[Rfam]
RNA: SAM riboswitch aptamer (S box leader)
Organism: Heyndrickxia sporothermodurans
RNA sequence: AACUUAUCCAGAGAGACUGAGGGACAGGCCCGAUGACGUCCAGCAACCUUCUAUAUAUGAAAGGUGCUAAUUCCUGCAGAAUGUUAUCAUUCUGAAAGAUAAGGU
Dot-bracket structure: (.((((((....(.(((...(((.[[[[)))......))))((((.(((((.......))).))))))...(]]]]((((((......))))))..))))))).)